[Rfam]
RNA sequence: AACGGUCAUAGGUCGAGUAUCCUAACGGGCUUUUCGACUGACCCAAAACUAUAGGAGAUGUGUUAGUGGCCCGUAUCGCUGGCAUUAACAUUUCCGAU
Numbered sequence: 001a002a003c004g005g006u007c008a009u010a011g012g013u014c015g016a017g018u019a020u021c022c023u024a025a026c027g028g029g030c031u032u033u034u035c036g037a038c039u040g041a042c043c044c045a046a047a048a049c050u051a052u053a054g055g056a057g058a059u060g061u062g063u064u065a066g067u068g069g070c071c072c073g074u075a076u077c078g079c080u081g082g083c084a085u086u087a088a089c090a091u092u093u094c095c096g097a098u
Stems, first nucleotide, its partner, number of pairs: 004043004011039003021082002026073004034097003